[Rfam]
RNA sequence: UAAGACCUUCGGGGCAGGGUGUAAUUCCCGACCGGCGGUAUUGCCAAUGUGGUUCGCAAGGAACCAGUGGCAGAGCCCGCGAGUCCUCAGGCAUGGAAAUGCCUGGCGUGAUUGAUUCGGUGCAAAUCCGAAGCCGACGGUAUAGUCCGGAUGGGAGAAGGUUUCU
Numbered sequence: 001u002a003a004g005a006c007c008u009u010c011g012g013g014g015c016a017g018g019g020u021g022u023a024a025u026u027c028c029c030g031a032c033c034g035g036c037g038g039u040a041u042u043g044c045c046a047a048u049g050u051g052g053u054u055c056g057c058a059a060g061g062a063a064c065c066a067g068u069g070g071c072a073g074a075g076c077c078c079g080c081g082a083g084u085c086c087u088c089a090g091g092c093a094u095g096g097a098a099a100u101g102c103c104u105g106g107c108g109u110g111a112u113u114g115a116u117u118c119g120g121u122g123c124a125a126a127u128c129c130g131a132a133g134c135c136g137a138c139g140g141u142a143u144a145g146u147c148c149g150g151a152u153g154g155g156a157g158a159a160g161g162u163u164u165c166u
Stems, first nucleotide, its partner, number of pairs: 003164008017029003031146002033136002035080004075134002083112003116132005138149003

This 166-nucleotide RNA sequence from Ktedonobacter racemifer belongs to the Rfam family "FMN riboswitch aptamer (RFN element)". Lineage of the source: Bacteria > Bacillati > Chloroflexota > Ktedonobacteria > Ktedonobacter racemifer. The match comes from Rfam's covariance-model search (112 bits).